[Rfam]
Rfam assigns this 587-nucleotide part of an RNA from Methylopila turkensis to the family "Bacterial large subunit ribosomal RNA". The match comes from Rfam's covariance-model search (2743 bits). The literature on the family includes a 2001 paper in Science by Yusupov et al., "Crystal structure of the ribosome at 5.5 A resolution". NCBI's taxonomy places the organism under Bacteria, Pseudomonadati, Pseudomonadota, Alphaproteobacteria, Methylopila. The base pairs follow the family's consensus structure, which is taken from published work.
RNA sequence: CCUGCGGUCAGACGGAAAGACCCCGUGCACCUUUACUAUAGCUUUGCAUUGGCGAUUGUGUUGGCAUGUGUAGGAUAGGUGGUAGGCUUUGAAGCUCGGGCGCCAGCUCGGGUGGAGCCACCCUUGAAAUACCACCCUUAUCGUCACGAUCGUCUAACCGCGAGCCGUCAUCCGGCUCCGGGACAAUGCAUGGUGGGUAGUUUGACUGGGGCGGUCGCCUCCCAAAGAGUAACGGAGGCGCGCGAUGGUAGGCUCAGAGCGGUCGGAAAUCGCUCGUUGAGUGCAAUGGCAUAAGCCUGCCUGACUGCGAGACAGACAAGUCGAGCAGAGACGAAAGUCGGUCAUAGUGAUCCGGUGGCUCCACGUGGACGGGCCAUCGCUCAACGGAUAAAAGGUACGCCGGGGAUAACAGGCUGAUACUGCCCAAGAGUCCAUAUCGACGGCAGUGUUUGGCACCUCGAUGUCGGCUCAUCACAUCCUGGGGCUGGAGCAGGUCCCAAGGGUUCGGCUGUUCGCCGAUUAAAGUGGUACGUGAGCUGGGUUCAGAACGUCGUGAGACAGUUCGGUCCCUAUCUGCCGUGGGUGUC
Numbered sequence: 001c002c003u004g005c006g007g008u009c010a011g012a013c014g015g016a017a018a019g020a021c022c023c024c025g026u027g028c029a030c031c032u033u034u035a036c037u038a039u040a041g042c043u044u045u046g047c048a049u050u051g052g053c054g055a056u057u058g059u060g061u062u063g064g065c066a067u068g069u070g071u072a073g074g075a076u077a078g079g080u081g082g083u084a085g086g087c088u089u090u091g092a093a094g095c096u097c098g099g100g101c102g103c104c105a106g107c108u109c110g111g112g113u114g115g116a117g118c119c120a121c122c123c124u125u126g127a128a129a130u131a132c133c134a135c136c137c138u139u140a141u142c143g144u145c146a147c148g149a150u151c152g153u154c155u156a157a158c159c160g161c162g163a164g165c166c167g168u169c170a171u172c173c174g175g176c177u178c179c180g181g182g183a184c185a186a187u188g189c190a191u192g193g194u195g196g197g198u199a200g201u202u203u204g205a206c207u208g209g210g211g212c213g214g215u216c217g218c219c220u221c222c223c224a225a226a227g228a229g230u231a232a233c234g235g236a237g238g239c240g241c242g243c244g245a246u247g248g249u250a251g252g253c254u255c256a257g258a259g260c261g262g263u264c265g266g267a268a269a270u271c272g273c274u275c276g277u278u279g280a281g282u283g284c285a286a287u288g289g290c291a292u293a294a295g296c297c298u299g300c301c302u303g304a305c306u307g308c309g310a311g312a313c314a315g316a317c318a319a320g321u322c323g324a325g326c327a328g329a330g331a332c333g334a335a336a337g338u339c340g341g342u343c344a345u346a347g348u349g350a351u352c353c354g355g356u357g358g359c360u361c362c363a364c365g366u367g368g369a370c371g372g373g374c375c376a377u378c379g380c381u382c383a384a385c386g387g388a389u390a391a392a393a394g395g396u397a398c399g400c401c402g403g404g405g406a407u408a409a410c411a412g413g414c415u416g417a418u419a420c421u422g423c424c425c426a427a428g429a430g431u432c433c434a435u436a437u438c439g440a441c442g443g444c445a446g447u448g449u450u451u452g453g454c455a456c457c458u459c460g461a462u463g464u465c466g467g468c469u470c471a472u473c474a475c476a477u478c479c480u481g482g483g484g485c486u487g488g489a490g491c492a493g494g495u496c497c498c499a500a501g502g503g504u505u506c507g508g509c510u511g512u513u514c515g516c517c518g519a520u521u522a523a524a525g526u527g528g529u530a531c532g533u534g535a536g537c538u539g540g541g542u543u544c545a546g547a548a549c550g551u552c553g554u555g556a557g558a559c560a561g562u563u564c565g566g567u568c569c570c571u572a573u574c575u576g577c578c579g580u581g582g583g584u585g586u587c
Stems, first nucleotide, its partner, number of pairs: 001583008010575003014570002022404004027400002029396005035201004042193002045190004051154010062143003066139001068137001078136005085119003094113008158181003162178006204216004217239006240385001242342002248300006254280002257275006281290002305328004311322003330339003353379007361372002413454003417451001418448007428438002465540001466538004470532001471529005478503002481498006505519005546564004550559003